[Rfam]
Nucleotides: 133
Base pairs, nucleotide, nucleotide: 005129006128007127008126009125010124017045018044019043047113048112049103050102051064052063053062054061059101060100083099084098085097086096087095105116106115107114
Number, partner (000 for none) and nucleotide at each position: 001000a002000c003000a004000a005129a006128c007127c008126u009125u010124c011000g012000g013000g014000g015000c016000a017045g018044g019043g020000u021000g022000a023000g024000g025000u026000a027000g028000a029000g030000a031000a032000a033000u034000c035000u036000u037000c038000c039000g040000a041000u042000u043019c044018c045017c046000g047113a048112u049103c050102g051064g052063u053062g054061g055000u056000a057000u058000a059101a060100c061054c062053c063052a064051c065000g066000a067000g068000c069000g070000c071000g072000c073000c074000a075000g076000c077000g078000c079000a080000u081000g082000a083099u084098c085097c086096g087095g088000u089000g090000a091000a092000a093000u094000u095087c096086c097085g098084g099083a100060g101059u102050c103049g104000a105116c106115g107114g108000u109000a110000u111000a112048g113047u114107c115106c116105g117000g118000a119000c120000g121000a122000a123000a124010g125009a126008a127007g128006g129005u130000c131000g132000c133000a